[Rfam]
RNA sequence: ACGACCUUACUUGAACAGGAUCUGUUCUAUAGGAUCGUACUACUGUGUCCUUGAUUUCUAAGGAGACAGGAACAUACGUCUGGUGGAUGAAUCAAGACCGUGUGAUCAGAGCGUGAUUAACGGCUAGGAUGAAUCUUGUUCGCGAGGCCUCAUCCUCCGCUGUAGAGGAUCGUUCUCGGCCAGUUUCACCUGACCGGGGUGGUCAUACGGUGUUCUGACAGACU
Numbered sequence: 001a002c003g004a005c006c007u008u009a010c011u012u013g014a015a016c017a018g019g020a021u022c023u024g025u026u027c028u029a030u031a032g033g034a035u036c037g038u039a040c041u042a043c044u045g046u047g048u049c050c051u052u053g054a055u056u057u058c059u060a061a062g063g064a065g066a067c068a069g070g071a072a073c074a075u076a077c078g079u080c081u082g083g084u085g086g087a088u089g090a091a092u093c094a095a096g097a098c099c100g101u102g103u104g105a106u107c108a109g110a111g112c113g114u115g116a117u118u119a120a121c122g123g124c125u126a127g128g129a130u131g132a133a134u135c136u137u138g139u140u141c142g143c144g145a146g147g148c149c150u151c152a153u154c155c156u157c158c159g160c161u162g163u164a165g166a167g168g169a170u171c172g173u174u175c176u177c178g179g180c181c182a183g184u185u186u187c188a189c190c191u192g193a194c195c196g197g198g199g200u201g202g203u204c205a206u207a208c209g210g211u212g213u214u215c216u217g218a219c220a221g222a223c224u
Stems, first nucleotide, its partner, number of pairs: 001038002003035001005033003013027006043069004048064006078223005097211012110174004120163005126156007135147003176197004181192003